RNA sequence: ACGUGAGUUGGGUCCGGGCCUGUAUGGGGCUCAACGAGUUUGGCUGGGCUCAGGAGGGUCUUGCCAAACGUCCUCAAGAGUGCGGAA
Numbered sequence: 001a002c003g004u005g006a007g008u009u010g011g012g013u014c015c016g017g018g019c020c021u022g023u024a025u026g027g028g029g030c031u032c033a034a035c036g037a038g039u040u041u042g043g044c045u046g047g048g049c050u051c052a053g054g055a056g057g058g059u060c061u062u063g064c065c066a067a068a069c070g071u072c073c074u075c076a077a078g079a080g081u082g083c084g085g086a087a
Stems, first nucleotide, its partner, number of pairs: 007035009036072002038069007046061006